RNA sequence: UACCUGGUGUGAUUAUAAAGCAAUGAGACUGAUUGUCAUAUGUCGUUUGUGGGAUCCGUCUCAGUUACUUUAUAGCCAUA
Numbered sequence: 001u002a003c004c005u006g007g008u009g010u011g012a013u014u015a016u017a018a019a020g021c022a023a024u025g026a027g028a029c030u031g032a033u034u035g036u037c038a039u040a041u042g043u044c045g046u047u048u049g050u051g052g053g054a055u056c057c058g059u060c061u062c063a064g065u066u067a068c069u070u071u072a073u074a075g076c077c078a079u080a
Stems, first nucleotide, its partner, number of pairs: 008080004013075008024063006031056004036052005
The family of this 80-nucleotide RNA sequence from Sus scrofa is "mir-340 microRNA precursor family". On this family, see Devor and Samollow, J Hered 2008: "In vitro and in silico annotation of conserved and nonconserved microRNAs in the genome of the marsupial Monodelphis domestica".